[Rfam]
RNA: Eukaryotic small subunit ribosomal RNA, nucleotides 620 to 1173
Organism: Thetispelecaris remex
RNA sequence: CUGUGGUUAAAACGCUCGUAGUUGAAGUCCUGCUCCAGCCCUCUGGCACUGUAACUGCAAAGUGCUUUGCUGGUUGGGGUUUUACUGGGGCGGCCUGUUGCCAUGCUGCGAGAUGCCCUUAACUGGGUGUCGCGCUGUUGGUUAGUGUUUACUUUGAAAAAAUUAGAGUGCUCAAAGCAGGCGUAUUGUGUCUGUAUGGUGGUGCAUGGAAUAAUAGAAAAGGUCUUUGGCUCCUGUUUGGAUUGGUUUUAAGAGCAUCGAAGAAAUGAUUAACGGAGGCAGGCGGGGGCAUUCGUACUGCGGCGCUAGAGGUGAAAUUCUUGGACCGUCGCAUGACGAACAACUGCGAAAGCAUUUGCCAAGAAUGUUUUCGUUGAUCAAGGACGAAAGCCUGGGGCUCGAAGGCGAUCAGAUACCGCCCUAGUCCAGUCCGUAAACUAUGCCGACCAGCGAUCUGCCGGAGUCGUACCCAUGACCUGGCAGGAAGCUUGUGGGAAACCAAAGUUUUUGGGUUCCAGGGGAAGUAUGGUUGCAAAGCUGAAACUUAAAGGAAU
Numbered sequence: 001c002u003g004u005g006g007u008u009a010a011a012a013c014g015c016u017c018g019u020a021g022u023u024g025a026a027g028u029c030c031u032g033c034u035c036c037a038g039c040c041c042u043c044u045g046g047c048a049c050u051g052u053a054a055c056u057g058c059a060a061a062g063u064g065c066u067u068u069g070c071u072g073g074u075u076g077g078g079g080u081u082u083u084a085c086u087g088g089g090g091c092g093g094c095c096u097g098u099u100g101c102c103a104u105g106c107u108g109c110g111a112g113a114u115g116c117c118c119u120u121a122a123c124u125g126g127g128u129g130u131c132g133c134g135c136u137g138u139u140g141g142u143u144a145g146u147g148u149u150u151a152c153u154u155u156g157a158a159a160a161a162a163u164u165a166g167a168g169u170g171c172u173c174a175a176a177g178c179a180g181g182c183g184u185a186u187u188g189u190g191u192c193u194g195u196a197u198g199g200u201g202g203u204g205c206a207u208g209g210a211a212u213a214a215u216a217g218a219a220a221a222g223g224u225c226u227u228u229g230g231c232u233c234c235u236g237u238u239u240g241g242a243u244u245g246g247u248u249u250u251a252a253g254a255g256c257a258u259c260g261a262a263g264a265a266a267u268g269a270u271u272a273a274c275g276g277a278g279g280c281a282g283g284c285g286g287g288g289g290c291a292u293u294c295g296u297a298c299u300g301c302g303g304c305g306c307u308a309g310a311g312g313u314g315a316a317a318u319u320c321u322u323g324g325a326c327c328g329u330c331g332c333a334u335g336a337c338g339a340a341c342a343a344c345u346g347c348g349a350a351a352g353c354a355u356u357u358g359c360c361a362a363g364a365a366u367g368u369u370u371u372c373g374u375u376g377a378u379c380a381a382g383g384a385c386g387a388a389a390g391c392c393u394g395g396g397g398c399u400c401g402a403a404g405g406c407g408a409u410c411a412g413a414u415a416c417c418g419c420c421c422u423a424g425u426c427c428a429g430u431c432c433g434u435a436a437a438c439u440a441u442g443c444c445g446a447c448c449a450g451c452g453a454u455c456u457g458c459c460g461g462a463g464u465c466g467u468a469c470c471c472a473u474g475a476c477c478u479g480g481c482a483g484g485a486a487g488c489u490u491g492u493g494g495g496a497a498a499c500c501a502a503a504g505u506u507u508u509u510g511g512g513u514u515c516c517a518g519g520g521g522a523a524g525u526a527u528g529g530u531u532g533c534a535a536a537g538c539u540g541a542a543a544c545u546u547a548a549a550g551g552a553a554u
Stems, first nucleotide, its partner, number of pairs: 004517003012514001014385001016383002021378003276372004280367002284363001288360004294338002299333007309320003346353002390431001392429004400424001404420004442513003445506003449489003454484008463476003493500002519546003528539004
Dot-bracket structure: ...(((.....(.(.((...(((............................................................................................................................................................................................................................................................((((((..(...((((..((...(((((((...(((......)))......)))))))...)).......((....))...))))..)..)).))))...)))...)).)....(.((((....(...((((.........))))...).)))).)..........((((((.(((..((((((((.(((........)))))))))))..)))...((....))...)))....))))))).(((......((((....))))....)))........